[Rfam]
RNA sequence: AUGGGAUUGGAUGGCCGUAGCAGAAGCGCUCGUGGCACAGCCCGUCGGAUUCCAACAAAAUCUGCAAAUUCUGCU
Numbered sequence: 001a002u003g004g005g006a007u008u009g010g011a012u013g014g015c016c017g018u019a020g021c022a023g024a025a026g027c028g029c030u031c032g033u034g035g036c037a038c039a040g041c042c043c044g045u046c047g048g049a050u051u052c053c054a055a056c057a058a059a060a061u062c063u064g065c066a067a068a069u070u071c072u073g074c075u
Stems, first nucleotide, its partner, number of pairs: 013042003019075007026038001028036001046064006